[Rfam]
RNA: Small nucleolar RNA SNORD67
Nucleotides: 115
Stems, first nucleotide, its partner, number of pairs: 004114001007111001025066004029061004034056003041050003
Number, partner (000 for none) and nucleotide at each position: 001000u002000g003000u004114g005000a006000c007111a008000g009000u010000g011000a012000u013000g014000a015000g016000u017000u018000g019000c020000a021000c022000u023000a024000u025066u026065a027064g028063g029061c030060g031059g032058g033000c034056u035055g036054c037000u038000g039000g040000u041050u042049g043048c044000a045000g046000u047000u048043g049042c050041a051000c052000a053000g054036g055035c056034g057000a058032c059031c060030c061029g062000u063028c064027c065026u066025g067000a068000c069000a070000a071000c072000c073000u074000a075000u076000g077000u078000u079000g080000a081000c082000a083000c084000a085000c086000c087000c088000a089000u090000u091000g092000u093000g094000c095000a096000c097000a098000g099000g100000g101000g102000c103000c104000a105000u106000c107000u108000g109000a110000g111007u112000c113000a114004c115000a